[Rfam]
RNA sequence: UUUUGAAAAAGGCAAACCAUCUGAAAGGAUGGGGCGCAAAGCCUAGGAACCUGUAAUCAGUAACUUGAUCAUGGUCGUCCAGCUGCCAGG
Numbered sequence: 001u002u003u004u005g006a007a008a009a010a011g012g013c014a015a016a017c018c019a020u021c022u023g024a025a026a027g028g029a030u031g032g033g034g035c036g037c038a039a040a041g042c043c044u045a046g047g048a049a050c051c052u053g054u055a056a057u058c059a060g061u062a063a064c065u066u067g068a069u070c071a072u073g074g075u076c077g078u079c080c081a082g083c084u085g086c087c088a089g090g
Stems, first nucleotide, its partner, number of pairs: 012037002017032006040084003044081001046080003049075003056069004

Shown here is a 90-nucleotide RNA from Bacillus sp. FJAT-18017, a member of the family "c-di-GMP-I riboswitch aptamer". The family's consensus secondary structure is taken from published work. A search with the family's covariance model found it, with a score of 66 bits. GEMM was predicted in a large-scale screen for bacterial structured RNA regulatory elements. Its family is annotated with cyclic-di-GMP binding in the Gene Ontology.